[Rfam]
Notes:
The record is a 274-nucleotide part of an RNA from Kozakia baliensis, which matches "Bacterial large subunit ribosomal RNA" in Rfam. Taxonomically the source falls in Kozakia (Bacteria, Pseudomonadati, Pseudomonadota, Acetobacteraceae). Rfam 15.1 lists 51,934 matches to the family in 10,816 species. Rfam links the family to the GO terms ribosome and structural constituent of ribosome. The match comes from Rfam's covariance-model search (2728 bits).

RNA sequence: GACAAACAGUGCGAGAAACACUGUCGCCGAAAGUCCAAGGGUUCCUGCGCAAGGUUAAUCCACGCAGGGUGAGCCGGCCCCUAAGGCGAGGGCGAAAGCCGUAGUCGAUGGGAACCAGUUGAAUAUUACUGGGCCUGCCAGCAGUGACGAAUGCGAUAUGUUGUCUGGUCUUAUUGGAUUGAUCAGGCUUUUGGAGCAUUCCAGGAAAUAGCUCUGGCAUAUAGACCGUACCCGAAACCGACACAGGUGGACUGGUAGAGAAUACCAAGGCGCU
Numbered sequence: 001g002a003c004a005a006a007c008a009g010u011g012c013g014a015g016a017a018a019c020a021c022u023g024u025c026g027c028c029g030a031a032a033g034u035c036c037a038a039g040g041g042u043u044c045c046u047g048c049g050c051a052a053g054g055u056u057a058a059u060c061c062a063c064g065c066a067g068g069g070u071g072a073g074c075c076g077g078c079c080c081c082u083a084a085g086g087c088g089a090g091g092g093c094g095a096a097a098g099c100c101g102u103a104g105u106c107g108a109u110g111g112g113a114a115c116c117a118g119u120u121g122a123a124u125a126u127u128a129c130u131g132g133g134c135c136u137g138c139c140a141g142c143a144g145u146g147a148c149g150a151a152u153g154c155g156a157u158a159u160g161u162u163g164u165c166u167g168g169u170c171u172u173a174u175u176g177g178a179u180u181g182a183u184c185a186g187g188c189u190u191u192u193g194g195a196g197c198a199u200u201c202c203a204g205g206a207a208a209u210a211g212c213u214c215u216g217g218c219a220u221a222u223a224g225a226c227c228g229u230a231c232c233c234g235a236a237a238c239c240g241a242c243a244c245a246g247g248u249g250g251a252c253u254g255g256u257a258g259a260g261a262a263u264a265c266c267a268a269g270g271c272g273c274u
Base pairs, nucleotide, nucleotide: 006024007023008022009021010020011019025272026271027270028269033252034251035250036249039232040231044068045067046066047065048064049063053061054060075228076227077226080111081110085106086105087104089102091100092099093098115132116131117130118129119128135224136219137218140215141214143213144212145211149201150200151199152198153197154196238247239246254266255265256264257263